This 65-nucleotide RNA sequence from Candidula unifasciata belongs to the Rfam family "mir-29 microRNA precursor family". Lineage of the source: Eukaryota > Heterobranchia > Euthyneura > Geomitridae > Candidula. From the family's description: This family represents the microRNA (miRNA) precursors mir-29. Pairs were carried over by alignment from the consensus structure, which was predicted with PFOLD. Its family is annotated with gene silencing by miRNA and RISC complex in the Gene Ontology.

RNA sequence: GGAAACCUGGUCUCUUUUGGUGCAUAGAGUUCAGCUUGUCUAGCACCAUUUGAAAUCAGUUUUCU
Numbered sequence: 001g002g003a004a005a006c007c008u009g010g011u012c013u014c015u016u017u018u019g020g021u022g023c024a025u026a027g028a029g030u031u032c033a034g035c036u037u038g039u040c041u042a043g044c045a046c047c048a049u050u051u052g053a054a055a056u057c058a059g060u061u062u063u064c065u
Stems, first nucleotide, its partner, number of pairs: 001065004005060001007059005013053002018048005025042004
Dot-bracket structure: (((((.(((((.((...(((((..((((..........)))).)))))...)).)))))).))))